[Rfam]
RNA sequence: CUGCCUACCUCGGGGGGCCCGGUAAACCGGGCUGAGAUUGCGCGUGCGACGCGCUGACCCGUUGAACCUGAACCGGCUCGCACCGGCGGAGGGAAGGUAACGGGCAAAGUC
Numbered sequence: 001c002u003g004c005c006u007a008c009c010u011c012g013g014g015g016g017g018c019c020c021g022g023u024a025a026a027c028c029g030g031g032c033u034g035a036g037a038u039u040g041c042g043c044g045u046g047c048g049a050c051g052c053g054c055u056g057a058c059c060c061g062u063u064g065a066a067c068c069u070g071a072a073c074c075g076g077c078u079c080g081c082a083c084c085g086g087c088g089g090a091g092g093g094a095a096g097g098u099a100a101c102g103g104g105c106a107a108a109g110u111c
Base pairs, nucleotide, nucleotide: 006099007098008097009096010095011061012060013059014058016055017032018031019030020029021028040054041053042052043051044050045049067092068091069090073086074085075084076083
Record summary:
The record is a 111-nucleotide RNA from Pelagovum pacificum, which matches "TPP riboswitch aptamer (THI element)" in Rfam. It scores 70 bits against the family's covariance model.